[Rfam]
RNA sequence: GGGCACCCCCACGGGAGUCCCACGGCACGGGACUGAGAUCGGGCUGAUGCCGCCUGACAACCGUCUGAACCUGUCCGGAUCAUGCCGGCGAAGGAAGAAGGAGAGUGAUGGCG
Numbered sequence: 001g002g003g004c005a006c007c008c009c010c011a012c013g014g015g016a017g018u019c020c021c022a023c024g025g026c027a028c029g030g031g032a033c034u035g036a037g038a039u040c041g042g043g044c045u046g047a048u049g050c051c052g053c054c055u056g057a058c059a060a061c062c063g064u065c066u067g068a069a070c071c072u073g074u075c076c077g078g079a080u081c082a083u084g085c086c087g088g089c090g091a092a093g094g095a096a097g098a099a100g101g102a103g104a105g106u107g108a109u110g111g112c113g
Stems, first nucleotide, its partner, number of pairs: 006101002010097001011064004017033005040056005070094003075088004

The record is a 113-nucleotide sequence from Micrococcus sp. HMSC067E09, which matches "TPP riboswitch aptamer (THI element)" in Rfam.